RNA sequence: UGAUGAAAAAGGCAAGCUAUUGAUAUAGCGCGCAAAGCUAAGAGUUAAUUCAUUAAUAAUUAACAGUCGGGCUGCCAUC
Numbered sequence: 001u002g003a004u005g006a007a008a009a010a011g012g013c014a015a016g017c018u019a020u021u022g023a024u025a026u027a028g029c030g031c032g033c034a035a036a037g038c039u040a041a042g043a044g045u046u047a048a049u050u051c052a053u054u055a056a057u058a059a060u061u062a063a064c065a066g067u068c069g070g071g072c073u074g075c076c077a078u079c
Stems, first nucleotide, its partner, number of pairs: 012033002017028004036073004042068002044064007
c-di-GMP-I riboswitch aptamer: a 79-nucleotide RNA sequence from Sinanaerobacter chloroacetimidivorans. Pairs were carried over by alignment from the consensus structure, which is taken from published work. Its family is annotated with cyclic-di-GMP binding in the Gene Ontology.